[Rfam]
RNA sequence: GUUGCGCGCGGCGAUGGAUCUCCGCCUGAGCGAUGGAUGCUCGAACCGCCCACCCGGCUGAUGGCUCCUGCUCGAUG
Numbered sequence: 001g002u003u004g005c006g007c008g009c010g011g012c013g014a015u016g017g018a019u020c021u022c023c024g025c026c027u028g029a030g031c032g033a034u035g036g037a038u039g040c041u042c043g044a045a046c047c048g049c050c051c052a053c054c055c056g057g058c059u060g061a062u063g064g065c066u067c068c069u070g071c072u073c074g075a076u077g
Base pairs, nucleotide, nucleotide: 010026011025012024013023016068017067018066020064021063048058049057050056
Dot-bracket structure: .........((((..[[[.[[.)))).....................(((.....)))....]].]]].........